[Rfam]
RNA sequence: AAUCGAAAAGGGCAAACCUGCUGAAAAGCAGGGACGCAAAGCCAAGGGUCUAAGGUCAGCGCGGUAUGAACGCCCGGACUACGACAGCCGGUUGCCGAA
Numbered sequence: 001a002a003u004c005g006a007a008a009a010g011g012g013c014a015a016a017c018c019u020g021c022u023g024a025a026a027a028g029c030a031g032g033g034a035c036g037c038a039a040a041g042c043c044a045a046g047g048g049u050c051u052a053a054g055g056u057c058a059g060c061g062c063g064g065u066a067u068g069a070a071c072g073c074c075c076g077g078a079c080u081a082c083g084a085c086a087g088c089c090g091g092u093u094g095c096c097g098a099a
Stems, first nucleotide, its partner, number of pairs: 012037002017032006040093004046089002048085003055079003